Overview
Shown here is an 83-nucleotide RNA from Hevea brasiliensis, a member of the family "Plastid-psbM 3UTR RNA". Plastid psbM is a non-coding RNA (ncRNA) recognised in plastids. Rfam classes the family as a cis-regulatory element.
RNA sequence: GAUCCAAUAGUAUGAUAGAAAGAAAAAUCUUUAUGUCUAUCAUACUAUCCUUUAUUGUUAUUCUAGCAUAUAAAGCUGUACUG
Numbered sequence: 001g002a003u004c005c006a007a008u009a010g011u012a013u014g015a016u017a018g019a020a021a022g023a024a025a026a027a028u029c030u031u032u033a034u035g036u037c038u039a040u041c042a043u044a045c046u047a048u049c050c051u052u053u054a055u056u057g058u059u060a061u062u063c064u065a066g067c068a069u070a071u072a073a074a075g076c077u078g079u080a081c082u083g
Stems, first nucleotide, its partner, number of pairs: 007048012019032005
For this family Rfam cites "Retrograde signaling in plants: A critical review focusing on the GUN pathway and beyond" (Richter et al., Plant Commun, 2023). The family's consensus secondary structure was predicted with LocARNA.